Rfam assigns this 61-nucleotide sequence from Homo sapiens to the family "mir-3135 microRNA precursor family". Its family is annotated with RISC complex and miRNA-mediated post-transcriptional gene silencing in the Gene Ontology.
RNA sequence: UGCCUAGGCUGAGACUGCAGUGGUGCAAUCUCAGUUCACUGCAGCCUUGACCUCCUGGGCU
Numbered sequence: 001u002g003c004c005u006a007g008g009c010u011g012a013g014a015c016u017g018c019a020g021u022g023g024u025g026c027a028a029u030c031u032c033a034g035u036u037c038a039c040u041g042c043a044g045c046c047u048u049g050a051c052c053u054c055c056u057g058g059g060c061u
Base pairs, nucleotide, nucleotide: 002060003059004058005057006056007055008054010049011048012047015044016043017042018041019040020039021038022037023036025035026034
The base pairs follow the family's consensus structure, which was predicted with RNAalifold.